Shown here is a 71-nucleotide sequence from Roseococcus sp. SYP-B2431, a member of the family "int-alpA RNA".
RNA sequence: GACGGGGCUAGGUUUGGCCGCCGAACGCCUGGCUCUCCGCGCCGGGCUGCCCCGUCGACUUCCACCUGCGG
Number, nucleotide and partner (000 for none) at each position: 001g056002a055003c054004g053005g052006g051007g050008c049009u000010a000011g022012g021013u020014u000015u000016g000017g000018c000019c000020g013021c012022c011023g000024a000025a000026c000027g000028c046029c045030u044031g043032g042033c000034u000035c000036u071037c070038c000039g000040c000041g000042c032043c031044g030045g029046g028047c000048u000049g008050c007051c006052c005053c004054g003055u002056c001057g000058a000059c000060u000061u000062c000063c000064a000065c000066c000067u000068g000069c000070g037071g036
A search with the family's covariance model found it, with a score of 37 bits. About the family: Acidobacteria (1 example), Planctomycetes (1 example), Proteobacteria. The organism belongs to Roseococcus, within Bacteria.